[Rfam]
RNA sequence: UAACCUCUGGCGAGAGUCGUGAAUGUUA
Numbered sequence: 001u002a003a004c005c006u007c008u009g010g011c012g013a014g015a016g017u018c019g020u021g022a023a024u025g026u027u028a
Stems, first nucleotide, its partner, number of pairs: 001028004008023001010020004
A member of the RNA family "L19-Flavobacteria ribosomal protein leader", 28 nucleotides long. The family's RNA type in Rfam is cis-regulatory leader. The sequence is in the family's curated seed alignment. The family's consensus secondary structure is taken from published work.